[Rfam]
RNA sequence: GAACGUAGACAGCAAAGAGAGCCAUCUGUUGACAGUCAUAAAUUGAAACUGUCAUGGAAUUGCUCUCUUUAUAUGCCUAUGU
Numbered sequence: 001g002a003a004c005g006u007a008g009a010c011a012g013c014a015a016a017g018a019g020a021g022c023c024a025u026c027u028g029u030u031g032a033c034a035g036u037c038a039u040a041a042a043u044u045g046a047a048a049c050u051g052u053c054a055u056g057g058a059a060u061u062g063c064u065c066u067c068u069u070u071a072u073a074u075g076c077c078u079a080u081g082u
Base pairs, nucleotide, nucleotide: 014070015069016068017067018066020064021063022062025058026057027056028055031053032052033051035049036048

This 82-nucleotide sequence from Litomosoides sigmodontis belongs to the Rfam family "mir-46/mir-47/mir-281 microRNA precursor family".
Its family is annotated with miRNA-mediated post-transcriptional gene silencing and RISC complex in the Gene Ontology.
Lineage of the source: Eukaryota > Opisthokonta > Nematoda > Spiruromorpha > Litomosoides.
A reference for the family is Lau et al. (2001), "An abundant class of tiny RNAs with probable regulatory roles in Caenorhabditis elegans", Science.